[Rfam]
RNA sequence: GGCGAGACCCUAUCAAUAUUGCCUCUGCUUUUUCCACUGUUUAUGGAGUAGUGCAAUAUUGCUUAUAGGGUCUU
Numbered sequence: 001g002g003c004g005a006g007a008c009c010c011u012a013u014c015a016a017u018a019u020u021g022c023c024u025c026u027g028c029u030u031u032u033u034c035c036a037c038u039g040u041u042u043a044u045g046g047a048g049u050a051g052u053g054c055a056a057u058a059u060u061g062c063u064u065a066u067a068g069g070g071u072c073u074u
Base pairs, nucleotide, nucleotide: 004074005073006072007071008070009069010068011067012066013065014061015060016059017058018057019056020055021054022053025051026050027049028048029046

mir-454 microRNA precursor family: a 74-nucleotide sequence from Cyprinus carpio. NCBI's taxonomy places the organism under Eukaryota, Craniata, Teleostomi, Cypriniphysae, Cyprinus. It is one of the family's seed sequences. The family's consensus secondary structure was predicted with RNAalifold. For this family Rfam cites "The developmental miRNA profiles of zebrafish as determined by small RNA cloning" (Chen et al., Genes Dev, 2005). Gene Ontology terms of the family: miRNA-mediated post-transcriptional gene silencing and RISC complex.